[Rfam]
RNA sequence: GCAGCGCAAAGAGAUGGCGUGCCUCUAAAACCGCCGCACUAGUGCGGCUGAUGACGCCUACAGAACC
Numbered sequence: 001g002c003a004g005c006g007c008a009a010a011g012a013g014a015u016g017g018c019g020u021g022c023c024u025c026u027a028a029a030a031c032c033g034c035c036g037c038a039c040u041a042g043u044g045c046g047g048c049u050g051a052u053g054a055c056g057c058c059u060a061c062a063g064a065a066c067c
Stems, first nucleotide, its partner, number of pairs: 010026004016058005033048006
RNA: Fluoride riboswitch aptamer (crcB RNA motif)